[Rfam]
RNA sequence: AGCAUCAGAGGACGAAAUCUCAUUACAAUCUUAGGACACCUUCUGACACAGUGCUGUUACCCUGCAUUGUGAAUGAGAAGGCUUUUUUUUCUGAUGAUGAU
Numbered sequence: 001a002g003c004a005u006c007a008g009a010g011g012a013c014g015a016a017a018u019c020u021c022a023u024u025a026c027a028a029u030c031u032u033a034g035g036a037c038a039c040c041u042u043c044u045g046a047c048a049c050a051g052u053g054c055u056g057u058u059a060c061c062c063u064g065c066a067u068u069g070u071g072a073a074u075g076a077g078a079a080g081g082c083u084u085u086u087u088u089u090u091c092u093g094a095u096g097a098u099g100a101u
Base pairs, nucleotide, nucleotide: 001101003099004098005097006096007095047053048052
RNA: Small nucleolar RNA snoR31/Z110/Z27